RNA sequence: UAUUUUGAGUAAUCGCUAUAGUAAUAUAGAGGAAAGUCCAUGCUCACACAAUCUGAGAUGAUUGUAGUGUUCGUGCUUGACGAAACAAUAAGUCAAGGCAUUAAGUUGACGGCGGUGACCUAACCUAAGUCUUUGAUAUGGUUACAAUAGCCUGAAAGUGCCACAGUGACGUAGCUUUUAUAGAAAUAUAAAAGGUGGAACGCGGUAAACCCCUCGAGUGAGCAAUCCAAAUUUGGUAGGAGCACUUGUCUAAUGGAAGUCAACAUAUAGACGAGGUAUUUAUAUUCGUAAUAUAUAAAUUCAGACAGAUGAUUACUGCCGGCGUACGAGUGUGACUAGUGCACGUUAGUAGUACUAAGGUACAGAACAUGGCUUACAAAA
Numbered sequence: 001u002a003u004u005u006u007g008a009g010u011a012a013u014c015g016c017u018a019u020a021g022u023a024a025u026a027u028a029g030a031g032g033a034a035a036g037u038c039c040a041u042g043c044u045c046a047c048a049c050a051a052u053c054u055g056a057g058a059u060g061a062u063u064g065u066a067g068u069g070u071u072c073g074u075g076c077u078u079g080a081c082g083a084a085a086c087a088a089u090a091a092g093u094c095a096a097g098g099c100a101u102u103a104a105g106u107u108g109a110c111g112g113c114g115g116u117g118a119c120c121u122a123a124c125c126u127a128a129g130u131c132u133u134u135g136a137u138a139u140g141g142u143u144a145c146a147a148u149a150g151c152c153u154g155a156a157a158g159u160g161c162c163a164c165a166g167u168g169a170c171g172u173a174g175c176u177u178u179u180a181u182a183g184a185a186a187u188a189u190a191a192a193a194g195g196u197g198g199a200a201c202g203c204g205g206u207a208a209a210c211c212c213c214u215c216g217a218g219u220g221a222g223c224a225a226u227c228c229a230a231a232u233u234u235g236g237u238a239g240g241a242g243c244a245c246u247u248g249u250c251u252a253a254u255g256g257a258a259g260u261c262a263a264c265a266u267a268u269a270g271a272c273g274a275g276g277u278a279u280u281u282a283u284a285u286u287c288g289u290a291a292u293a294u295a296u297a298a299a300u301u302c303a304g305a306c307a308g309a310u311g312a313u314u315a316c317u318g319c320c321g322g323c324g325u326a327c328g329a330g331u332g333u334g335a336c337u338a339g340u341g342c343a344c345g346u347u348a349g350u351a352g353u354a355c356u357a358a359g360g361u362a363c364a365g366a367a368c369a370u371g372g373c374u375u376a377c378a379a380a381a
Stems, first nucleotide, its partner, number of pairs: 004381003007377001008317007016029005034375003038372005043222005048065006071217003075213001076097006098110001099108002111212002114152003122143004129137003158210002160206003175194008226241003245275007276302001278300008319360002324355004
The family of this 381-nucleotide sequence from Staphylococcus massiliensis is "Bacterial RNase P class B".
Its Rfam clan is "RNaseP clan".
From the family's description: Ribonuclease P (RNase P) is a ubiquitous endoribonuclease, found in archaea, bacteria and eukarya as well as chloroplasts and mitochondria. Its best characterised activity is the generation of mature 5'-ends of tRNAs by cleaving the 5'-leader elements of precursor-tRNAs.